[Rfam]
Description: The family of this 126-nucleotide RNA from Proteiniclasticum ruminis is "Ribosomal protein L10 leader". The match comes from Rfam's covariance-model search (58 bits). Lineage of the source: Bacteria > Bacillati > Eubacteriales > Clostridiaceae > Proteiniclasticum.
RNA sequence: AAUAACAAAAUAUGCAUACUAAGACAGUGGGUGAGUUUCUCAUAAGUCCCACCGAGGUGCGAGUACUUUAUAGUUUUUAAAACUAAGGUCUCUCCUCGUCUUGGAGAGGCCUUUUUGUUAGGAUUU
Numbered sequence: 001a002a003u004a005a006c007a008a009a010a011u012a013u014g015c016a017u018a019c020u021a022a023g024a025c026a027g028u029g030g031g032u033g034a035g036u037u038u039c040u041c042a043u044a045a046g047u048c049c050c051a052c053c054g055a056g057g058u059g060c061g062a063g064u065a066c067u068u069u070a071u072a073g074u075u076u077u078u079a080a081a082a083c084u085a086a087g088g089u090c091u092c093u094c095c096u097c098g099u100c101u102u103g104g105a106g107a108g109g110c111c112u113u114u115u116u117g118u119u120a121g122g123a124u125u126u
Base pairs, nucleotide, nucleotide: 027052028051029050030049031048033041034040035039087111088110089109090108091107092106093105094104095103